RNA: U11 spliceosomal RNA
Organism: Chionoecetes opilio
Nucleotides: 124
Base pairs, nucleotide, nucleotide: 008074009073010072011071012070013029014028015027016026017025030043031042032041033040034039044069045068046067048065049064050063094121095120098118099117100116101115102114105112106111
Number, partner (000 for none) and nucleotide at each position: 001000u002000a003000a004000a005000a006000g007000g008074g009073u010072g011071u012070c013029u014028g015027c016026c017025g018000u019000a020000c021000a022000c023000a024000g025017u026016g027015g028014c029013g030043c031042a032041c033040g034039g035000c036000u037000u038000g039034c040033c041032g042031u043030g044069g045068g046067g047000g048065a049064u050063a051000g052000c053000u054000c055000u056000c057000a058000a059000g060000a061000c062000a063050u064049a065048u066000a067046c068045u069044c070012g071011g072010c073009a074008c075000g076000u077000a078000a079000u080000c081000u082000c083000u084000u085000g086000a087000a088000c089000g090000u091000g092000a093000g094121g095120g096000a097000a098118g099117u100116u101115c102114g103000c104000u105112g106111c107000u108000c109000a110000g111106g112105c113000u114102c115101g116100g117099a118098c119000g120095u121094u122000a123000u124000a